[Rfam]
RNA sequence: GGAACCCCCACAACACUCUGGCCCUUACUGUUCUUUCCCUACGGGGUUUGAUCAUAUCAAAACGUGGUAUAGGCUUAUUUUAAGUGGGGAAGAGAAAAUCAGUCCCAUUACUCAUCGCGGUAUCCUUGGAGACUUGUCUUCGUGGGUGCAGUGAUCCAUAUUUCGGGUCUACAU
Numbered sequence: 001g002g003a004a005c006c007c008c009c010a011c012a013a014c015a016c017u018c019u020g021g022c023c024c025u026u027a028c029u030g031u032u033c034u035u036u037c038c039c040u041a042c043g044g045g046g047u048u049u050g051a052u053c054a055u056a057u058c059a060a061a062a063c064g065u066g067g068u069a070u071a072g073g074c075u076u077a078u079u080u081u082a083a084g085u086g087g088g089g090a091a092g093a094g095a096a097a098a099u100c101a102g103u104c105c106c107a108u109u110a111c112u113c114a115u116c117g118c119g120g121u122a123u124c125c126u127u128g129g130a131g132a133c134u135u136g137u138c139u140u141c142g143u144g145g146g147u148g149c150a151g152u153g154a155u156c157c158a159u160a161u162u163u164c165g166g167g168u169c170u171a172c173a174u
Stems, first nucleotide, its partner, number of pairs: 007089003020075004026069006102169001104167002115154004120149003124146003